A member of the RNA family "Wolbachia sRNA 46" from Gossypium mustelinum, 144 nucleotides long. The organism belongs to Gossypium, within Eukaryota. On this family, see Mayoral et al., Proc Natl Acad Sci U S A 2014: "Wolbachia small noncoding RNAs and their role in cross-kingdom communications". The family's RNA type in Rfam is small RNA. The family has 3 seed sequences and 237 matches in Rfam 15.1.

RNA sequence: AAAAUUAAAAAAAAAAUUUGGGUGUUGGCCUGUCAAUAGCCGGCACCCAGUACAAUUUAAAUUGUACAAAAAAGAAAAUUUUUUUUAAAAUUGUACUGGGUGCCGGCCAUUGACAGGCCAACACCCAAAUUUUUUUUUUUUCGU
Dot-bracket structure: ..........(((((....((((((((((((((((((.((((((((((((.............................................)))))))))))).))))))))))))))))))........))))).....